The record is a 118-nucleotide RNA from Glycine max, which matches "mir-393 microRNA precursor family" in Rfam. NCBI's taxonomy places the organism under Eukaryota, Mesangiospermae, Pentapetalae, Fabales, Glycine subgen. Soja.
Nucleotides: 118
Stems, first nucleotide, its partner, number of pairs: 003117004010110012023097003026093006035085001
Number, partner (000 for none) and nucleotide at each position: 001000a002000a003117a004116g005115g006114a007000g008000a009000a010110a011109u012108c013107c014106a015105a016104a017103g018102g019101g020100a021099u022000a023097g024096c025095a026093u027092g028091a029090u030089c031088c032000c033000a034000a035085a036000u037000a038000a039000a040000u041000u042000a043000a044000u045000a046000u047000u048000a049000u050000u051000g052000a053000g054000u055000g056000a057000g058000a059000a060000g061000a062000g063000a064000g065000a066000a067000a068000a069000a070000u071000a072000u073000u074000a075000a076000a077000g078000c079000u080000u081000g082000g083000a084000u085035u086000u087000g088031g089030g090029a091028u092027c093026a094000a095025u096024g097023c098000g099021a100020u101019c102018c103017c104016u105015u106014u107013g108012g109011a110010u111000g112000c113000c114006u115005c116004c117003u118000c